[Rfam]
RNA sequence: UGCAGCUGAUGUCUUUUCUCACGAUGGUCUUCUGAACCUGUGUGGUUUUGCAGACAGUGCCUUAUGGCUUUGCUGAUGCAGCUUA
Numbered sequence: 001u002g003c004a005g006c007u008g009a010u011g012u013c014u015u016u017u018c019u020c021a022c023g024a025u026g027g028u029c030u031u032c033u034g035a036a037c038c039u040g041u042g043u044g045g046u047u048u049u050g051c052a053g054a055c056a057g058u059g060c061c062u063u064a065u066g067g068c069u070u071u072g073c074u075g076a077u078g079c080a081g082c083u084u085a
Stems, first nucleotide, its partner, number of pairs: 001080004
Source information: This 85-nucleotide sequence from Astyanax mexicanus belongs to the Rfam family "Small nucleolar RNA SNORD35". On this family, see Nicoloso et al., J Mol Biol 1996: "Intron-encoded, antisense small nucleolar RNAs: the characterization of nine novel species points to their direct role as guides for the 2'-O-ribose methylation of rRNAs". The family is grouped with related families in Rfam's "SNORD35 clan". From the family's description: U35 is a C/D box snoRNA located in intron 6 of ribosomal protein L13A and intron 3 of ribosomal protein S11 in humans and at homologous positions in mouse and chicken ribosomal protein genes. U35 guides the methylation of 2'-O-ribose sites in 28S rRNA. Lineage of the source: Eukaryota > Metazoa > Actinopteri > Clupeocephala > Astyanax.